[Rfam]
RNA sequence: GAAUAAUUGUGGGGGGACUCAUUUGAGUUGAGAAGGCUAAAACCUGACCCUUUGAACCUGUUGGGUUAAGACCUGCGUAGGGAAGCAAAAAUGAGAAGAUU
Numbered sequence: 001g002a003a004u005a006a007u008u009g010u011g012g013g014g015g016g017a018c019u020c021a022u023u024u025g026a027g028u029u030g031a032g033a034a035g036g037c038u039a040a041a042a043c044c045u046g047a048c049c050c051u052u053u054g055a056a057c058c059u060g061u062u063g064g065g066u067u068a069a070g071a072c073c074u075g076c077g078u079a080g081g082g083a084a085g086c087a088a089a090a091a092u093g094a095g096a097a098g099a100u101u
Base pairs, nucleotide, nucleotide: 007088008087009086010085011051012050013049014048016045017028018027019026020025035044036043057081058080059079060078062075063074064073065072
RNA: TPP riboswitch aptamer (THI element)
Organism: Ruminococcaceae bacterium BL-6